[Rfam]
A member of the RNA family "glmS glucosamine-6-phosphate activated ribozyme aptamer" from Metabacillus sediminilitoris, 166 nucleotides long. Rfam classes the family as a riboswitch. The base pairs follow the family's consensus structure, which is taken from published work. This entry contains a glucosamine-6-phosphate activated ribozyme that is found in the mRNA for GlmS. GlmS is an enzyme that uses fructose-6-phosphate and glutamine to generate glucosamine-6-phosphate. A search with the family's covariance model found it, with a score of 136 bits.

RNA sequence: GUUUUAUUCAAAGCGCCUGAACUAAGUGGACGAAAAAAGCUUAGUUGACGAGGAUGGAGGUUAUCGAAUUUUCGGCGGAUGCCUCCCGGUUGAUUGGUUACAACCGUAAGUUUUUCCUUAAAACAAAGAGGUAACUUUUUGUACAAAGGGAAAAUCAUAGCCUUCC
Numbered sequence: 001g002u003u004u005u006a007u008u009c010a011a012a013g014c015g016c017c018u019g020a021a022c023u024a025a026g027u028g029g030a031c032g033a034a035a036a037a038a039g040c041u042u043a044g045u046u047g048a049c050g051a052g053g054a055u056g057g058a059g060g061u062u063a064u065c066g067a068a069u070u071u072u073c074g075g076c077g078g079a080u081g082c083c084u085c086c087c088g089g090u091u092g093a094u095u096g097g098u099u100a101c102a103a104c105c106g107u108a109a110g111u112u113u114u115u116c117c118u119u120a121a122a123a124c125a126a127a128g129a130g131g132u133a134a135c136u137u138u139u140u141g142u143a144c145a146a147a148g149g150g151a152a153a154a155u156c157a158u159a160g161c162c163u164u165c166c
Stems, first nucleotide, its partner, number of pairs: 020046008056086005064075004087106006110156001112154005124141007